[Rfam]
RNA sequence: CUCCCCGAAAUGCAUUUAGGUGCAGCGUUGUAUGGUGCUUCCUGGAGGUAGAGCGACUGGUUGGUUGAGCGGGACUACCAUCUUAGCAAUGUCAGCCAAACUCCGAAUGCCAGUGAAUGCUAGUACAGCAGUGAGACUGCGGGGGAUAAGCUCCGUUGGUCGAAAGGGAAACAGCCCAGAUCGCCGGUUAAGGCCCCUAAGGGUGUACUAAGUGGAAAAGGAUGUGGGAUCGCGAAGACAGCCAGGAGGUUGGCUUAGAAGCAGCCAUCCUUGAAAGAGUGCGUAAUAGCUCACUGGUCGAGUGGUUCUGCGCCGACAAUGUAGUGGGGCUCAAGUACACCGCCGAAACCGCGGCAACACACCUGUUGUGGUGUGUUGGGUAGGGGAGCGUCGUGCACUGCGUGGAAGCAUCCGAGUGAUCGUGGUGUGGAGUGUGCGCGAGUGAGAAU
Numbered sequence: 001c002u003c004c005c006c007g008a009a010a011u012g013c014a015u016u017u018a019g020g021u022g023c024a025g026c027g028u029u030g031u032a033u034g035g036u037g038c039u040u041c042c043u044g045g046a047g048g049u050a051g052a053g054c055g056a057c058u059g060g061u062u063g064g065u066u067g068a069g070c071g072g073g074a075c076u077a078c079c080a081u082c083u084u085a086g087c088a089a090u091g092u093c094a095g096c097c098a099a100a101c102u103c104c105g106a107a108u109g110c111c112a113g114u115g116a117a118u119g120c121u122a123g124u125a126c127a128g129c130a131g132u133g134a135g136a137c138u139g140c141g142g143g144g145g146a147u148a149a150g151c152u153c154c155g156u157u158g159g160u161c162g163a164a165a166g167g168g169a170a171a172c173a174g175c176c177c178a179g180a181u182c183g184c185c186g187g188u189u190a191a192g193g194c195c196c197c198u199a200a201g202g203g204u205g206u207a208c209u210a211a212g213u214g215g216a217a218a219a220g221g222a223u224g225u226g227g228g229a230u231c232g233c234g235a236a237g238a239c240a241g242c243c244a245g246g247a248g249g250u251u252g253g254c255u256u257a258g259a260a261g262c263a264g265c266c267a268u269c270c271u272u273g274a275a276a277g278a279g280u281g282c283g284u285a286a287u288a289g290c291u292c293a294c295u296g297g298u299c300g301a302g303u304g305g306u307u308c309u310g311c312g313c314c315g316a317c318a319a320u321g322u323a324g325u326g327g328g329g330c331u332c333a334a335g336u337a338c339a340c341c342g343c344c345g346a347a348a349c350c351g352c353g354g355c356a357a358c359a360c361a362c363c364u365g366u367u368g369u370g371g372u373g374u375g376u377u378g379g380g381u382a383g384g385g386g387a388g389c390g391u392c393g394u395g396c397a398c399u400g401c402g403u404g405g406a407a408g409c410a411u412c413c414g415a416g417u418g419a420u421c422g423u424g425g426u427g428u429g430g431a432g433u434g435u436g437c438g439c440g441a442g443u444g445a446g447a448a449u
Stems, first nucleotide, its partner, number of pairs: 001388006011024005026131001027129007036122001039117003042113004051104001052102002058098003062094004069087002071084004135161004139156006166177003181354004186350003192344003201341001203340006220314002224311010241298005247271003252266003272276001277292001281290002355378008389444001391441007399434003408428005413422003
Rfam assigns this 449-nucleotide part of an RNA from Corynebacterium gerontici to the family "Bacterial large subunit ribosomal RNA". A search with the family's covariance model found it, with a score of 2585 bits.